[Rfam]
RNA sequence: UGGCUCAUCGGGCCGCGGAUACCUGCUUCCAUUUUU
Numbered sequence: 001u002g003g004c005u006c007a008u009c010g011g012g013c014c015g016c017g018g019a020u021a022c023c024u025g026c027u028u029c030c031a032u033u034u035u036u
Base pairs, nucleotide, nucleotide: 003013004012006011016025017024018023
RNA: XIST RNA A repeat